A member of the RNA family "SAM riboswitch aptamer (S box leader)" from Weizmannia acidilactici, 106 nucleotides long. It scores 95 bits against the family's covariance model. The family's consensus secondary structure is taken from published work.
RNA sequence: UUCUUAUCAAGAGUGGCGGAGGGAAUGGCCCAAUGAAGCCCGGCAACCGCAGAUGUCUAUCUGAAAGGUGCUAAUUCCAGCAGGAUUGAUUCCUGAAAGAUAAGAG
Numbered sequence: 001u002u003c004u005u006a007u008c009a010a011g012a013g014u015g016g017c018g019g020a021g022g023g024a025a026u027g028g029c030c031c032a033a034u035g036a037a038g039c040c041c042g043g044c045a046a047c048c049g050c051a052g053a054u055g056u057c058u059a060u061c062u063g064a065a066a067g068g069u070g071c072u073a074a075u076u077c078c079a080g081c082a083g084g085a086u087u088g089a090u091u092c093c094u095g096a097a098a099g100a101u102a103a104g105a106g
Base pairs, nucleotide, nucleotide: 001106002105003104004103005102006101007100008099013041015040016039017038021031022030023029026079027078028077042072043071044070045069047068048067050063051062052061076098081095082094083093084092085091